[Rfam]
RNA sequence: GCUUAUUCCCCGGGGGGCCGCGCGUGCGGCUGAGAGGCGGCAGAUCGGCCGCGACCCGUUGAACCUGAUCCGGCUGACACCGGCGGAGGGAGGGAGCGGCACAGCAGA
Numbered sequence: 001g002c003u004u005a006u007u008c009c010c011c012g013g014g015g016g017g018c019c020g021c022g023c024g025u026g027c028g029g030c031u032g033a034g035a036g037g038c039g040g041c042a043g044a045u046c047g048g049c050c051g052c053g054a055c056c057c058g059u060u061g062a063a064c065c066u067g068a069u070c071c072g073g074c075u076g077a078c079a080c081c082g083g084c085g086g087a088g089g090g091a092g093g094g095a096g097c098g099g100c101a102c103a104g105c106a107g108a
Stems, first nucleotide, its partner, number of pairs: 006096005011058004017030005037052005064089003070083004

Source information:
The record is a 108-nucleotide RNA sequence from Sphingomonas oleivorans, which matches "TPP riboswitch aptamer (THI element)" in Rfam. Pairs were carried over by alignment from the consensus structure, which is taken from published work. It scores 71 bits against the family's covariance model. The organism belongs to Sphingomonas, within Bacteria.